[Rfam]
RNA sequence: GAGUCCGGGGUUCUAGUGUAAAUGCCCGACUAGAACCCUGUUCAAGUGGUCUAACCACUGAUGUCGUUUAUAGGGCAUUCG
Numbered sequence: 001g002a003g004u005c006c007g008g009g010g011u012u013c014u015a016g017u018g019u020a021a022a023u024g025c026c027c028g029a030c031u032a033g034a035a036c037c038c039u040g041u042u043c044a045a046g047u048g049g050u051c052u053a054a055c056c057a058c059u060g061a062u063g064u065c066g067u068u069u070a071u072a073g074g075g076c077a078u079u080c081g
Stems, first nucleotide, its partner, number of pairs: 008038009023077005040067002045062001049058002
Dot-bracket structure: .......(((((((((......[[[[[..))))))))).((...(...((......))...)...)).....]]]]]....
Coronavirus frameshifting stimulation element: an 81-nucleotide RNA sequence from Betacoronavirus tylonycteridis. It is one of the family's seed sequences. Rfam classes the family as a frameshift element. Rfam describes the family as follows. This family represents a conserved stem-loop found in Coronaviruses which can promote ribosomal frameshifting. This family interacts with a downstream region to form a pseudoknot structure, the region varies according to the virus but pseudoknot formation is known to stimulate frameshifting. In the classical situation a sequence 32nt downstream of the stem is complementary to part of the loop.